[Rfam]
The family of this 161-nucleotide sequence from Cellulosimicrobium sp. CUA-896 is "c-di-AMP riboswitch aptamer (ydaO/yuaA leader)". Pairs were carried over by alignment from the consensus structure. Lineage of the source: Bacteria > Bacillati > Actinomycetota > Actinomycetes > Cellulosimicrobium. The match comes from Rfam's covariance-model search (60 bits).
RNA sequence: ACGAGGUUCACGACGACCCGACGACAGGGGCGGGGGACCCACUUCCGGGCGCUGGAGACAGCGUCCUCGGGGUGAAGCCCGGCGGACCUCGGUCCGCGGGGCCGGGUGUUUCUCCCACCCGAACCCGACAGCUGACUUCGCAGGCGUCCAGGAGAGGCAAA
Number, nucleotide and partner (000 for none) at each position: 001a000002c000003g000004a000005g000006g000007u000008u000009c000010a000011c146012g145013a000014c143015g000016a000017c000018c029019c028020g000021a000022c000023g000024a000025c000026a000027g000028g019029g018030g141031c140032g139033g138034g137035g136036g000037a000038c000039c000040c069041a000042c000043u000044u000045c000046c000047g000048g000049g000050c000051g000052c000053u000054g000055g000056a000057g000058a000059c000060a000061g000062c000063g000064u000065c000066c000067u000068c000069g040070g126071g125072g124073u000074g000075a000076a000077g000078c101079c100080c099081g000082g000083c000084g000085g000086a000087c000088c000089u000090c000091g000092g000093u000094c000095c000096g000097c000098g000099g080100g079101g078102c000103c000104g120105g119106g118107u117108g000109u000110u000111u000112c000113u000114c000115c000116c000117a107118c106119c105120c104121g000122a000123a000124c072125c071126c070127g000128a000129c000130a000131g000132c000133u000134g000135a000136c035137u034138u033139c032140g031141c030142a000143g014144g000145c012146g011147u000148c000149c000150a000151g000152g000153a000154g000155a000156g000157g000158c000159a000160a000161a000